Shown here is a 497-nucleotide part of an RNA from Methanocorpusculum labreanum, a member of the family "Archaeal small subunit ribosomal RNA". Rfam 15.1 lists 709 matches to the family in 491 species. The literature on the family includes a 2001 paper in Science by Yusupov et al., "Crystal structure of the ribosome at 5.5 A resolution". Its Rfam clan is "SSU clan".
RNA sequence: AUUCUGGUUGAUCCUGCCAGAGGCCAUUGCUAUCAGGGUUUGACUAAGCCAUGCGAGUCGAGAGGUGUAAGACCUCGGCAUACUGCUCAGUAACACGUGGUUAACCUGCCCUAAGGUGGAGAAUACUCCCGGGAAACUGGGGCUAAUGCUCCAUAGUGGAUAUGUCCUGGAAUGGUAUAUCCUCGAAAGAUCCGUCGCCUUAGGAUGGGACUGCGUCCGAUUAGGUUGUUGGCGGGGUAACGGCCCACCAAGCCUUUUAUCGGUACGGGUUGUGGGAGCAAGAUCCCGGAGAUGGAUUCUGAGACAUGAAUCCAGGCCCUACGGGGCGCAGCAGGCGCGCAAACUUUACAAUGCGAGCAAUCGUGAUAAGGAAACCCUGAGUGCCUGUCGAUGCAGGCUGUUCAUAUAUCUAAAUCAUAUGUGAAGAAAGGGCAGGGCAAGACCGGUGCCAGCCGCCGCGGUAAUACCGGCUGCUCGAGUGAUGGCCACUAUUACUG
Numbered sequence: 001a002u003u004c005u006g007g008u009u010g011a012u013c014c015u016g017c018c019a020g021a022g023g024c025c026a027u028u029g030c031u032a033u034c035a036g037g038g039u040u041u042g043a044c045u046a047a048g049c050c051a052u053g054c055g056a057g058u059c060g061a062g063a064g065g066u067g068u069a070a071g072a073c074c075u076c077g078g079c080a081u082a083c084u085g086c087u088c089a090g091u092a093a094c095a096c097g098u099g100g101u102u103a104a105c106c107u108g109c110c111c112u113a114a115g116g117u118g119g120a121g122a123a124u125a126c127u128c129c130c131g132g133g134a135a136a137c138u139g140g141g142g143c144u145a146a147u148g149c150u151c152c153a154u155a156g157u158g159g160a161u162a163u164g165u166c167c168u169g170g171a172a173u174g175g176u177a178u179a180u181c182c183u184c185g186a187a188a189g190a191u192c193c194g195u196c197g198c199c200u201u202a203g204g205a206u207g208g209g210a211c212u213g214c215g216u217c218c219g220a221u222u223a224g225g226u227u228g229u230u231g232g233c234g235g236g237g238u239a240a241c242g243g244c245c246c247a248c249c250a251a252g253c254c255u256u257u258u259a260u261c262g263g264u265a266c267g268g269g270u271u272g273u274g275g276g277a278g279c280a281a282g283a284u285c286c287c288g289g290a291g292a293u294g295g296a297u298u299c300u301g302a303g304a305c306a307u308g309a310a311u312c313c314a315g316g317c318c319c320u321a322c323g324g325g326g327c328g329c330a331g332c333a334g335g336c337g338c339g340c341a342a343a344c345u346u347u348a349c350a351a352u353g354c355g356a357g358c359a360a361u362c363g364u365g366a367u368a369a370g371g372a373a374a375c376c377c378u379g380a381g382u383g384c385c386u387g388u389c390g391a392u393g394c395a396g397g398c399u400g401u402u403c404a405u406a407u408a409u410c411u412a413a414a415u416c417a418u419a420u421g422u423g424a425a426g427a428a429a430g431g432g433c434a435g436g437g438c439a440a441g442a443c444c445g446g447u448g449c450c451a452g453c454c455g456c457c458g459c460g461g462u463a464a465u466a467c468c469g470g471c472u473g474c475u476c477g478a479g480u481g482a483u484g485g486c487c488a489c490u491a492u493u494a495c496u497g
Base pairs, nucleotide, nucleotide: 004020005019006018007017008016022487023486024485025484026483027482028481029480030479031478033380034379035378036377037376038375039374040373041372042338048336049335050334052333053332054331057079058078059077062076063075064074065073066072086291087290088289095216096215097214098213099212100211101210102209105208106207110204111203112202113201114200115199116198118152119151120150121149127142128141129140130139131138132137158182159181160180161179162178163177164176166175167174189196190195217263218262219261224254225253226252229251230250231249232248234246235245236244266288267287268286269285270281271280272279273278293314294313295312296311297310298309316327317326318325319324344370346369347368348367352365353364354363355362356361383398384397385396386395387394388393402427403423404422405421406420407419408418409417430476431475432474433473434472435471443470444469445468446467452459453458